[Rfam]
L31-Actinobacteria ribosomal protein leader: a 48-nucleotide RNA sequence from Nocardioides donggukensis.

Nucleotides: 048
Base pairs, nucleotide, nucleotide: 003048004047005046007043008042009041010040015037016036017035018034020032021031022030023029
Number, partner (000 for none) and nucleotide at each position: 001000c002000c003048g004047g005046u006000u007043c008042c009041g010040g011000u012000u013000c014000a015037c016036g017035g018034u019000c020032c021031c022030g023029c024000a025000c026000c027000g028000c029023g030022c031021g032020g033000c034018a035017c036016c037015g038000a039000c040010c041009c042008g043007g044000c045000g046005a047004c048003c
The match comes from Rfam's covariance-model search (61 bits). Clan: Ribosomal Protein L31 Leader clan. The organism belongs to Nocardioides, within Bacteria.